[Rfam]
The record is a 125-nucleotide RNA from Rhizobium sp. AC44/96, which matches "Alphaproteobacterial ar14" in Rfam.
A reference for the family is Robledo et al. (2017), "A conserved alpha-proteobacterial small RNA contributes to osmoadaptation and symbiotic efficiency of rhizobia on legume roots", Environ Microbiol.
The pairing is the family consensus, mapped onto this sequence.
The source organism's lineage runs through Bacteria, Pseudomonadati, Pseudomonadota, Alphaproteobacteria and Rhizobium.
Rfam describes the family as follows. Smr14C2 was renamed NfeR1 (Nodule Formation Efficiency RNA) highly expressed in salt stress and during the symbiotic interaction on legume roots.
RNA sequence: GUGUUUGCAGGCGGCCUAUCCUCCUCCCAAGGGCGCCUGCGGGAAUAGCAGCACUCCUCCUCCCAGCUGCUAUUCGGUUAUUUUCGGAAAGCCUGCCGCACCUCCUCCCGCGGCAGGCUUUUUCG
Numbered sequence: 001g002u003g004u005u006u007g008c009a010g011g012c013g014g015c016c017u018a019u020c021c022u023c024c025u026c027c028c029a030a031g032g033g034c035g036c037c038u039g040c041g042g043g044a045a046u047a048g049c050a051g052c053a054c055u056c057c058u059c060c061u062c063c064c065a066g067c068u069g070c071u072a073u074u075c076g077g078u079u080a081u082u083u084u085c086g087g088a089a090a091g092c093c094u095g096c097c098g099c100a101c102c103u104c105c106u107c108c109c110g111c112g113g114c115a116g117g118c119u120u121u122u123u124c125g
Stems, first nucleotide, its partner, number of pairs: 007040003011036003015032003043075010089120011